[Rfam]
RNA sequence: AAGAGUUAUAAGUUUAUUCCCGAUAGGAUUCACAAUUGUGUGAAGAAGCCUUGUAACCAAAACAAUUAGGGGGAAAUCGAAAUG
Numbered sequence: 001a002a003g004a005g006u007u008a009u010a011a012g013u014u015u016a017u018u019c020c021c022g023a024u025a026g027g028a029u030u031c032a033c034a035a036u037u038g039u040g041u042g043a044a045g046a047a048g049c050c051u052u053g054u055a056a057c058c059a060a061a062a063c064a065a066u067u068a069g070g071g072g073g074a075a076a077u078c079g080a081a082a083u084g
Stems, first nucleotide, its partner, number of pairs: 017075005025051003029044005057070002
Source information: This 84-nucleotide sequence from Fructilactobacillus sanfranciscensis belongs to the Rfam family "SAM-III riboswitch aptamer (SMK box)". A reference for the family is Fuchs et al. (2007), "S-adenosylmethionine directly inhibits binding of 30S ribosomal subunits to the SMK box translational riboswitch RNA", Proc Natl Acad Sci U S A. The match comes from Rfam's covariance-model search (75 bits).